[Rfam]
RNA: Bacterial large signal recognition particle RNA
Organism: Lachnoclostridium sp. An131
RNA sequence: CCGCGCAGCCGGGGAAUUAGCGGUGCCCUGUACCUGCAAUCCGCUACAGCAGGGGUGAUAUUCUGCCCCGGACUUAAUGAACAUUGUGCAGCCCUCUGUAAGCAGCACUGACGCCUGGGUCUUGCGCAACAGGAAUCUGCGAACCGGGUCAGGUCAGGAAUGAAGCAGCCCUAAGCGGAAGCUCCUGUGUGCCGCGAGGCAGCCUGGGCCGAGCCGGCUGCAGAGGUAACGGCUCUGUUCAUGGUUCAAAGCAGAAUGCGCGG
Numbered sequence: 001c002c003g004c005g006c007a008g009c010c011g012g013g014g015a016a017u018u019a020g021c022g023g024u025g026c027c028c029u030g031u032a033c034c035u036g037c038a039a040u041c042c043g044c045u046a047c048a049g050c051a052g053g054g055g056u057g058a059u060a061u062u063c064u065g066c067c068c069c070g071g072a073c074u075u076a077a078u079g080a081a082c083a084u085u086g087u088g089c090a091g092c093c094c095u096c097u098g099u100a101a102g103c104a105g106c107a108c109u110g111a112c113g114c115c116u117g118g119g120u121c122u123u124g125c126g127c128a129a130c131a132g133g134a135a136u137c138u139g140c141g142a143a144c145c146g147g148g149u150c151a152g153g154u155c156a157g158g159a160a161u162g163a164a165g166c167a168g169c170c171c172u173a174a175g176c177g178g179a180a181g182c183u184c185c186u187g188u189g190u191g192c193c194g195c196g197a198g199g200c201a202g203c204c205u206g207g208g209c210c211g212a213g214c215c216g217g218c219u220g221c222a223g224a225g226g227u228a229a230c231g232g233c234u235c236u237g238u239u240c241a242u243g244g245u246u247c248a249a250a251g252c253a254g255a256a257u258g259c260g261c262g263g
Stems, first nucleotide, its partner, number of pairs: 001263007008056003011029004016024003033053005061256006070247005077242007086233001091227001094225006102218002105214002113209008121198006127189002130187005136179005146171004154163003